[Rfam]
RNA sequence: CGGCUCUUCCUAUUAUACCGAAGCAGAAUUUAGUAAGCGUUGGAUUGUUCACCCACUAGACAAACGAGUCUCGUAAGAAACCCUAAUUGGUGGGGAUAGUUGGGUCACCCGGGUGCGUGGGUGAUUACGCCAGCUAGUCGAUUACAGCACAAACCUGCAGGAGCUGUACGGCAACACAACCUGGAUCGGGGGAGGCUGCGGCGCUCGACGCCAUGCUAAUCCCGAGCGGAGCCGCAGAAGGGGCGACCCUUCUGCAGCGGCCCGUGUAGAGCGCGGAAAGGUGUGGGCUGAUCUCACUGAGAUCGGCUUAAGGGACGUGCCAGACCCUCGGGAAACCGAGACCAUCGGAGGAGCGCCUGCAGCGCAAAUCCGCUGGGGGGCGACUGAGCUCAGGAGGAAAUGCCUGAAGCGAGCCCCGGUACAACUCAGAGAACAGGGCCCUCGGGCCUGUAGAAACAACCCUCUGGGGAUCGAAUAGGGAACGUGAGCUGGGUUUAGACCGUCGUGAGACAGGUUAGUU
Numbered sequence: 001c002g003g004c005u006c007u008u009c010c011u012a013u014u015a016u017a018c019c020g021a022a023g024c025a026g027a028a029u030u031u032a033g034u035a036a037g038c039g040u041u042g043g044a045u046u047g048u049u050c051a052c053c054c055a056c057u058a059g060a061c062a063a064a065c066g067a068g069u070c071u072c073g074u075a076a077g078a079a080a081c082c083c084u085a086a087u088u089g090g091u092g093g094g095g096a097u098a099g100u101u102g103g104g105u106c107a108c109c110c111g112g113g114u115g116c117g118u119g120g121g122u123g124a125u126u127a128c129g130c131c132a133g134c135u136a137g138u139c140g141a142u143u144a145c146a147g148c149a150c151a152a153a154c155c156u157g158c159a160g161g162a163g164c165u166g167u168a169c170g171g172c173a174a175c176a177c178a179a180c181c182u183g184g185a186u187c188g189g190g191g192g193a194g195g196c197u198g199c200g201g202c203g204c205u206c207g208a209c210g211c212c213a214u215g216c217u218a219a220u221c222c223c224g225a226g227c228g229g230a231g232c233c234g235c236a237g238a239a240g241g242g243g244c245g246a247c248c249c250u251u252c253u254g255c256a257g258c259g260g261c262c263c264g265u266g267u268a269g270a271g272c273g274c275g276g277a278a279a280g281g282u283g284u285g286g287g288c289u290g291a292u293c294u295c296a297c298u299g300a301g302a303u304c305g306g307c308u309u310a311a312g313g314g315a316c317g318u319g320c321c322a323g324a325c326c327c328u329c330g331g332g333a334a335a336c337c338g339a340g341a342c343c344a345u346c347g348g349a350g351g352a353g354c355g356c357c358u359g360c361a362g363c364g365c366a367a368a369u370c371c372g373c374u375g376g377g378g379g380g381c382g383a384c385u386g387a388g389c390u391c392a393g394g395a396g397g398a399a400a401u402g403c404c405u406g407a408a409g410c411g412a413g414c415c416c417c418g419g420u421a422c423a424a425c426u427c428a429g430a431g432a433a434c435a436g437g438g439c440c441c442u443c444g445g446g447c448c449u450g451u452a453g454a455a456a457c458a459a460c461c462c463u464c465u466g467g468g469g470a471u472c473g474a475a476u477a478g479g480g481a482a483c484g485u486g487a488g489c490u491g492g493g494u495u496u497a498g499a500c501c502g503u504c505g506u507g508a509g510a511c512a513g514g515u516u517a518g519u520u
Stems, first nucleotide, its partner, number of pairs: 001492001002490004006484001007481005014039001017034002020031003041474001043472003498516004502511003